[Rfam]
Rfam assigns this 71-nucleotide RNA sequence from Endobacterium cereale to the family "Makes More Granules Regulator RNA (mmgR)".
The family's RNA type in Rfam is small RNA.
Pairs were carried over by alignment from the consensus structure.
From the family's description: SuhB later renamed mmgR (makes more granules regulator) was a putative non-coding RNA found multiple times in the Agrobacterium tumefaciens genome and related alpha-proteobacteria. Other non-coding RNAs uncovered in the same analysis include: speF, ybhL, metA, and serC.Several studies inSinorhizobium meliloti showed that suhB element is indeed a non-coding RNA:firstly it was detected on Northern blot and called Sm8RNA, secondly in an RNAseq study referred to as SmelC689.The mutant phenotype's (strain lacking the small RNA) cytoplasm contains higher content of polyhydroxybutyrate (PBH)storage granules than wild type strain.
It scores 60 bits against the family's covariance model.
Gene Ontology terms of the family: DNA-templated transcription, termination, protein binding and response to nitrogen compound.
On this family, see Corbino et al., Genome Biol 2005: "Evidence for a second class of S-adenosylmethionine riboswitches and other regulatory RNA motifs in alpha-proteobacteria".

RNA sequence: CUGUAAUACCCUCCUUGGGUGUUUCCUCCCUAGACUUGACCGCGCCUCGAGCGCGGUUUUUUUUGGCCGCA
Numbered sequence: 001c002u003g004u005a006a007u008a009c010c011c012u013c014c015u016u017g018g019g020u021g022u023u024u025c026c027u028c029c030c031u032a033g034a035c036u037u038g039a040c041c042g043c044g045c046c047u048c049g050a051g052c053g054c055g056g057u058u059u060u061u062u063u064u065g066g067c068c069g070c071a
Stems, first nucleotide, its partner, number of pairs: 008020004040056006